[Rfam]
RNA: tRNA
Organism: Bremerella alba
RNA sequence: GCGGGUGUAGCUCAAUGGUAGAGCAACAGCCUUCCAAGCUGAAGACGAGGGUUCGAUUCCCUUCACCCGCU
Numbered sequence: 001g002c003g004g005g006u007g008u009a010g011c012u013c014a015a016u017g018g019u020a021g022a023g024c025a026a027c028a029g030c031c032u033u034c035c036a037a038g039c040u041g042a043a044g045a046c047g048a049g050g051g052u053u054c055g056a057u058u059c060c061c062u063u064c065a066c067c068c069g070c071u
Stems, first nucleotide, its partner, number of pairs: 001070007010024004027041004047063005
Dot-bracket structure: (((((((..((((.......))))..((((.......)))).....(((((.......)))))))))))).